[Rfam]
RNA sequence: CUGCAAGAUAGAGGCGCGGCUGACAUGAGUAAGCGUGGCUAGGGAGCCGGUUCCCGUCUGAGCCAUGUCCAAAGGGAAGGCCGCCGAAGGGUCCCUUCUGCCGGAGGAAGGGGGCUCUGGUCGCUUGGUUAACAGCCCUGUGACUGUCAUCUGGGCGGGCUGCCCAGGUGGAGCGCUGUCUGCUUU
Number, nucleotide and partner (000 for none) at each position: 001c000002u000003g000004c000005a000006a181007g180008a179009u178010a177011g176012a000013g000014g000015c000016g084017c083018g082019g081020c080021u079022g000023a000024c076025a000026u000027g000028a000029g000030u000031a000032a000033g068034c067035g066036u065037g064038g063039c062040u000041a000042g000043g000044g000045a000046g000047c000048c000049g000050g000051u000052u000053c000054c000055c000056g000057u000058c000059u000060g000061a000062g039063c038064c037065a036066u035067g034068u033069c000070c000071a000072a000073a000074g000075g000076g024077a000078a000079g021080g020081c019082c018083g017084c016085c000086g000087a000088a118089g117090g116091g115092u114093c113094c112095c111096u110097u109098c000099u107100g000101c000102c000103g000104g000105a000106g000107g099108a000109a097110g096111g095112g094113g093114g092115c091116u090117c089118u088119g145120g144121u143122c142123g141124c140125u000126u000127g137128g136129u135130u000131a000132a000133c000134a000135g129136c128137c127138c000139u000140g124141u123142g122143a121144c120145u119146g000147u171148c170149a169150u168151c167152u166153g165154g164155g163156c000157g000158g000159g000160c000161u000162g000163c155164c154165c153166a152167g151168g150169u149170g148171g147172a000173g000174c000175g000176c011177u010178g009179u008180c007181u006182g000183c000184u000185u000186u000
Lysine riboswitch aptamer: a 186-nucleotide sequence from Ruminococcaceae bacterium D16. The source organism's lineage runs through Bacteria, Bacillota, Clostridia, Eubacteriales and Oscillospiraceae. A search with the family's covariance model found it, with a score of 84 bits. The literature on the family includes a 2003 paper in Proc Natl Acad Sci U S A by Grundy et al., "The L box regulon: Lysine sensing by leader RNAs of bacterial lysine biosynthesis genes".